The family of this 167-nucleotide RNA sequence from Colocasia esculenta is "small nucleolar RNA snoR143".
Lineage of the source: Eukaryota > Spermatophyta > Magnoliopsida > Aroideae > Colocasia.
The literature on the family includes a 2009 paper in Nucleic Acids Res by Chen and Wu, "Mining small RNA sequencing data: a new approach to identify small nucleolar RNAs in Arabidopsis".
The match comes from Rfam's covariance-model search (88 bits).
RNA sequence: UUGCACCUUCUGAAUAGGUAAGGUCUCUCUAGUUUCAAUAGUGAGCUCUUCAGAUAUGGUGCAUAGAAAAAAUGCUGUUUAUUCAGCAGCGGCCAGACAACCGUAGGGAUGGAUCCACAGGUGAAUGGUUCAAAAUACCAUUUGUCUACUGAUUUCAUCGCACAUAA
Numbered sequence: 001u002u003g004c005a006c007c008u009u010c011u012g013a014a015u016a017g018g019u020a021a022g023g024u025c026u027c028u029c030u031a032g033u034u035u036c037a038a039u040a041g042u043g044a045g046c047u048c049u050u051c052a053g054a055u056a057u058g059g060u061g062c063a064u065a066g067a068a069a070a071a072a073u074g075c076u077g078u079u080u081a082u083u084c085a086g087c088a089g090c091g092g093c094c095a096g097a098c099a100a101c102c103g104u105a106g107g108g109a110u111g112g113a114u115c116c117a118c119a120g121g122u123g124a125a126u127g128g129u130u131c132a133a134a135a136u137a138c139c140a141u142u143u144g145u146c147u148a149c150u151g152a153u154u155u156c157a158u159c160g161c162a163c164a165u166a167a
Stems, first nucleotide, its partner, number of pairs: 002063005013055001015053001017051001020050004025045003029041003106161001108159006124143002126140003
Dot-bracket structure: .(((((......(.(.(..((((.(((.(((.......))).))).))))).).)...)))))..........................................(.((((((..........(((((.........))).))..........)))))).)......